Shown here is a 131-nucleotide sequence from Echinops telfairi, a member of the family "Small nucleolar RNA SNORA69". The family's consensus secondary structure was predicted with PFOLD. Lineage of the source: Eukaryota > Gnathostomata > Eutheria > Afrosoricida > Echinops. The sequence is in the family's curated seed alignment. The family has 16 seed sequences and 808 matches in Rfam 15.1.
RNA sequence: AAAGCAGGCUGCAAUUACAGUACUUCAGUUUGUGGAAGUACUGCCAUUAUCCUGCUGAGAGAAAAAGCCAUGUUGGCCGGCUCUGGUUUUGCCUCUUCAGGUGAGAUCAUGACCGGUUAGCAUGUACAAUU
Dot-bracket structure: ..((((((.........(((((((((........))))))))).......))))))............((((((((((.....(((((((((((....))))))))))).....)))))))))).......